This 119-nucleotide sequence from Comamonas terrigena belongs to the Rfam family "TPP riboswitch aptamer (THI element)". Lineage of the source: Bacteria > Pseudomonadati > Burkholderiales > Comamonadaceae > Comamonas.

RNA sequence: GCGGCUGCUCCGGGGUGUGCGAAAGCGCUGAGAUGCCGGCUGCUGUGACAACAGCGGUCUGCGAACCCGACGAACUUGAUCCGGUUCAUACCGGCGGAAGAAGAGCGGGACCCUGAUGC
Numbered sequence: 001g002c003g004g005c006u007g008c009u010c011c012g013g014g015g016u017g018u019g020c021g022a023a024a025g026c027g028c029u030g031a032g033a034u035g036c037c038g039g040c041u042g043c044u045g046u047g048a049c050a051a052c053a054g055c056g057g058u059c060u061g062c063g064a065a066c067c068c069g070a071c072g073a074a075c076u077u078g079a080u081c082c083g084g085u086u087c088a089u090a091c092c093g094g095c096g097g098a099a100g101a102a103g104a105g106c107g108g109g110a111c112c113c114u115g116a117u118g119c
Stems, first nucleotide, its partner, number of pairs: 006107005011069004016063001017028004035062002038059009075100003081094004